[Rfam]
RNA sequence: UGGCGCCCAACAUGGCUUGGAUACUGGGGACAACGUGAGGGAUCCCACGAAGAAAGGGGUGUGCACCCGAUUAAACAAUAGUUCGGAGACGUCGCGGUAGCCUGCUGUGACUGAGCCGACAGGUAAGUGGUCGAGAAAAAUCAUGGGGCAAGAACUAAGUCAACAUCAAAAGUAGGUGAUGCAGUUAAGAGAAGCGUUACAGGCAAGAGGAGUAAAGGUUACAACUAAAGAUUUAUUUCAUUUCUUUGAUUUCAUACAGGACAUUUGUCCUU
Numbered sequence: 001u002g003g004c005g006c007c008c009a010a011c012a013u014g015g016c017u018u019g020g021a022u023a024c025u026g027g028g029g030a031c032a033a034c035g036u037g038a039g040g041g042a043u044c045c046c047a048c049g050a051a052g053a054a055a056g057g058g059g060u061g062u063g064c065a066c067c068c069g070a071u072u073a074a075a076c077a078a079u080a081g082u083u084c085g086g087a088g089a090c091g092u093c094g095c096g097g098u099a100g101c102c103u104g105c106u107g108u109g110a111c112u113g114a115g116c117c118g119a120c121a122g123g124u125a126a127g128u129g130g131u132c133g134a135g136a137a138a139a140a141u142c143a144u145g146g147g148g149c150a151a152g153a154a155c156u157a158a159g160u161c162a163a164c165a166u167c168a169a170a171a172g173u174a175g176g177u178g179a180u181g182c183a184g185u186u187a188a189g190a191g192a193a194g195c196g197u198u199a200c201a202g203g204c205a206a207g208a209g210g211a212g213u214a215a216a217g218g219u220u221a222c223a224a225c226u227a228a229a230g231a232u233u234u235a236u237u238u239c240a241u242u243u244c245u246u247u248g249a250u251u252u253c254a255u256a257c258a259g260g261a262c263a264u265u266u267g268u269c270c271u272u
Stems, first nucleotide, its partner, number of pairs: 006029003013023002035043001083123002085120001090115001093109005130149001131147002134144001156199003159195002207247006216234005258271005